Rfam assigns this 70-nucleotide RNA from Pteropus vampyrus to the family "Small nucleolar RNA SNORD82". Rfam 15.1 lists 649 matches to the family in 590 species. A reference for the family is Galardi et al. (2002), "Purified box C/D snoRNPs are able to reproduce site-specific 2'-O-methylation of target RNA in vitro", Mol Cell Biol. The source organism's lineage runs through Eukaryota, Vertebrata, Gnathostomata, Euteleostomi and Pteropus. It is annotated as a C/D-box small nucleolar RNA. Rfam's curators write: snoRNA U82 or Z25 is found in both humans and mice. Rfam links the family to the GO terms RNA processing and nucleolus.
[Rfam]
RNA sequence: GGCACAAGUGAUGAACAGCAAAGGGACUUAAUGCUGAAACCCGAUGUUGCAUUGUAAUGUGCUGAUGUGC
Numbered sequence: 001g002g003c004a005c006a007a008g009u010g011a012u013g014a015a016c017a018g019c020a021a022a023g024g025g026a027c028u029u030a031a032u033g034c035u036g037a038a039a040c041c042c043g044a045u046g047u048u049g050c051a052u053u054g055u056a057a058u059g060u061g062c063u064g065a066u067g068u069g070c
Stems, first nucleotide, its partner, number of pairs: 002070005